[Rfam]
RNA sequence: UGUUCAUUUAUGAUGGUUACAGAUCAAACCCUUGGCCUCUGUAAUCUGAUGUUCUGAAACA
Numbered sequence: 001u002g003u004u005c006a007u008u009u010a011u012g013a014u015g016g017u018u019a020c021a022g023a024u025c026a027a028a029c030c031c032u033u034g035g036c037c038u039c040u041g042u043a044a045u046c047u048g049a050u051g052u053u054c055u056g057a058a059a060c061a
Stems, first nucleotide, its partner, number of pairs: 001061004015046009030035001
RNA: Selenocysteine insertion sequence 1
Organism: Albula goreensis